[Rfam]
RNA sequence: GCCACGCCUACCCCGCGCCUGAUCCGCAAGGGGGAAAAGUCGGACACCUUCACCGACCUGGCGGCGGCACCCUUUGAAGG
Number, nucleotide and partner (000 for none) at each position: 001g068002c067003c066004a000005c063006g062007c061008c060009u000010a000011c033012c032013c031014c030015g000016c000017g000018c000019c000020u000021g000022a000023u000024c000025c000026g000027c000028a000029a000030g014031g013032g012033g011034g000035a000036a000037a000038a000039g057040u056041c055042g054043g053044a000045c000046a000047c080048c079049u078050u077051c076052a000053c043054c042055g041056a040057c039058c000059u000060g008061g007062c006063g005064g000065c000066g003067g002068c001069a000070c000071c000072c000073u000074u000075u000076g051077a050078a049079g048080g047
Rfam assigns this 80-nucleotide RNA from Rhodoferax fermentans to the family "int-alpA RNA".
Rfam describes the family as follows. Acidobacteria (1 example), Planctomycetes (1 example), Proteobacteria.
The family's consensus secondary structure is taken from published work.
By type it is a small RNA.
Taxonomically the source falls in Rhodoferax (Bacteria, Pseudomonadati, Pseudomonadota, Burkholderiales).